[Rfam]
RNA sequence: CCCGCCGAGGGGCGCUGCGACCGUGGACCGGCGGAACCUUCCGCAGGCGCCGGCACUUCGACGUGCCGGGCUUCCACGGCCAGGCUCGGCGCAGGUUACGAACAUGCAACAACGGCGCCCGGCCAAA
Numbered sequence: 001c002c003c004g005c006c007g008a009g010g011g012g013c014g015c016u017g018c019g020a021c022c023g024u025g026g027a028c029c030g031g032c033g034g035a036a037c038c039u040u041c042c043g044c045a046g047g048c049g050c051c052g053g054c055a056c057u058u059c060g061a062c063g064u065g066c067c068g069g070g071c072u073u074c075c076a077c078g079g080c081c082a083g084g085c086u087c088g089g090c091g092c093a094g095g096u097u098a099c100g101a102a103c104a105u106g107c108a109a110c111a112a113c114g115g116c117g118c119c120c121g122g123c124c125a126a127a
Stems, first nucleotide, its partner, number of pairs: 003091006021079006

Rfam assigns this 127-nucleotide RNA from Pseudoxanthomonas broegbernensis to the family "SAH (S-adenosyl-L-homocysteine) riboswitch aptamer". A search with the family's covariance model found it, with a score of 52 bits. Gene Ontology terms of the family: regulation of gene expression and S-adenosylhomocysteine metabolic process.